[Rfam]
RNA sequence: UCAGGACACCAGAGAACCAUAGAGCGAAUUACUUCUUCCAGAGUGCUAAAUGAUCCCCUGGUGCCCUGGAA
Numbered sequence: 001u002c003a004g005g006a007c008a009c010c011a012g013a014g015a016a017c018c019a020u021a022g023a024g025c026g027a028a029u030u031a032c033u034u035c036u037u038c039c040a041g042a043g044u045g046c047u048a049a050a051u052g053a054u055c056c057c058c059u060g061g062u063g064c065c066c067u068g069g070a071a
Stems, first nucleotide, its partner, number of pairs: 002068004007063006014056001016054001018052003023047003031044004

Shown here is a 71-nucleotide RNA from Macaca mulatta, a member of the family "mir-7177 microRNA precursor family". The family has 2 seed sequences and 81 matches in Rfam 15.1. NCBI's taxonomy places the organism under Eukaryota, Metazoa, Eutheria, Euarchontoglires, Macaca.